[Rfam]
RNA sequence: CGCGCUGCAGCUGAUGACAGCACUGCUGCUGAGCCUCUGUGAUUGCUUAGUUUCAAAGGACACGCUCCGAUGGACCGUGG
Number, nucleotide and partner (000 for none) at each position: 001c000002g000003c000004g000005c000006u074007g000008c072009a071010g021011c020012u019013g018014a000015u000016g000017a000018c013019a012020g011021c010022a000023c000024u000025g000026c000027u000028g000029c050030u049031g048032a047033g046034c000035c000036u000037c000038u000039g000040u000041g000042a000043u000044u000045g000046c033047u032048u031049a030050g029051u000052u000053u000054c000055a000056a000057a000058g000059g000060a000061c000062a000063c000064g000065c000066u000067c000068c000069g000070a000071u009072g008073g000074a006075c000076c000077g000078u000079g000080g000
Source information: The record is an 80-nucleotide sequence from Neophocaena asiaeorientalis, which matches "Small nucleolar RNA U105B" in Rfam. Taxonomically the source falls in Neophocaena asiaeorientalis (Eukaryota, Eumetazoa, Mammalia, Eutheria). Pairs were carried over by alignment from the consensus structure, which was predicted with WAR. Its Rfam clan is "SNORD105 clan". It is annotated as a C/D-box small nucleolar RNA.